Description: The record is a 135-nucleotide sequence, which matches "Small nucleolar RNA SNORA42/SNORA80 family" in Rfam. The family's RNA type in Rfam is H/ACA-box small nucleolar RNA. It is one of the family's seed sequences. About the family: The members of this family belong to the H/ACA class of snoRNAs that guide the sites of modification of uridines to pseudouridines.

RNA sequence: GCAUAGAUUUGGACUAUGGCAGGCUCCUCCCCAUGGGCUUCUCAUAGUGUCUCAUGCUAGAGCAAACUGUUGCUCCUAACCAUUGUCCAGCCUCAGUCCCUGUAGGCUGCUGGCCCUGAAGUGGGUCACACAGUA
Numbered sequence: 001g002c003a004u005a006g007a008u009u010u011g012g013a014c015u016a017u018g019g020c021a022g023g024c025u026c027c028u029c030c031c032c033a034u035g036g037g038c039u040u041c042u043c044a045u046a047g048u049g050u051c052u053c054a055u056g057c058u059a060g061a062g063c064a065a066a067c068u069g070u071u072g073c074u075c076c077u078a079a080c081c082a083u084u085g086u087c088c089a090g091c092c093u094c095a096g097u098c099c100c101u102g103u104a105g106g107c108u109g110c111u112g113g114c115c116c117u118g119a120a121g122u123g124g125g126u127c128a129c130a131c132a133g134u135a
Base pairs, nucleotide, nucleotide: 001057002056003055004054005052006051007050008049014047015046016045017044018043019042021040022039023038024036025035070128072126073125074124075123081118082117086113087112088109089108090107091106092105093104
Dot-bracket structure: ((((((((.....((((((.(((((.........)).))).)))))).)))).))))............(.((((.....((...((((((((..........))))))..))...))....)))).).......
A reference for the family is Schattner et al. (2006), "A computational screen for mammalian pseudouridylation guide H/ACA RNAs", RNA.